A member of the RNA family "Mason-Pfizer monkey virus packaging signal" from Nannospalax galili, 276 nucleotides long. This family represents a group of sequences that are related to the Mason-Pfizer monkey virus (MPMV) packaging signal. The packaging signal is located in the 5' UTR and is required for specific RNA encapsidation. It scores 141 bits against the family's covariance model. A reference for the family is Mustafa et al. (2004), "Mutational analysis of the predicted secondary RNA structure of the Mason-Pfizer monkey virus packaging signal", Virus Res. It is annotated as a cis-regulatory element.
RNA sequence: UGGCGCCCAGUGUGAGGGCUGGAUACGGAGGAUCCAGUGAGGGAAGAAGACGGCCCCCAAGGAACGUUCCACAAGAAUUCUUCACUCUGGACACGCCACAGGAACCUGCCUCGGCUACAACCAGAAGUAAGUACCGAAGUCUGAUUAUGGGACAAAAAUUAAGCAGGCACGAAAUUUAUGUUAGGCAAUUGCAGGAUGCCUUAUGGAUGCGAGGAGUAAAGGUUAAAAUAGAGGAUCUAUUGAGAUUCUUUGAAUUUAUUAAGGGAACCUGUCCUU
Numbered sequence: 001u002g003g004c005g006c007c008c009a010g011u012g013u014g015a016g017g018g019c020u021g022g023a024u025a026c027g028g029a030g031g032a033u034c035c036a037g038u039g040a041g042g043g044a045a046g047a048a049g050a051c052g053g054c055c056c057c058c059a060a061g062g063a064a065c066g067u068u069c070c071a072c073a074a075g076a077a078u079u080c081u082u083c084a085c086u087c088u089g090g091a092c093a094c095g096c097c098a099c100a101g102g103a104a105c106c107u108g109c110c111u112c113g114g115c116u117a118c119a120a121c122c123a124g125a126a127g128u129a130a131g132u133a134c135c136g137a138a139g140u141c142u143g144a145u146u147a148u149g150g151g152a153c154a155a156a157a158a159u160u161a162a163g164c165a166g167g168c169a170c171g172a173a174a175u176u177u178a179u180g181u182u183a184g185g186c187a188a189u190u191g192c193a194g195g196a197u198g199c200c201u202u203a204u205g206g207a208u209g210c211g212a213g214g215a216g217u218a219a220a221g222g223u224u225a226a227a228a229u230a231g232a233g234g235a236u237c238u239a240u241u242g243a244g245a246u247u248c249u250u251u252g253a254a255u256u257u258a259u260u261a262a263g264g265g266a267a268c269c270u271g272u273c274c275u276u
Stems, first nucleotide, its partner, number of pairs: 006031002012026003038047001084128003087124002097113001101109001136153001140151004160203003163199003210252008220238005261276005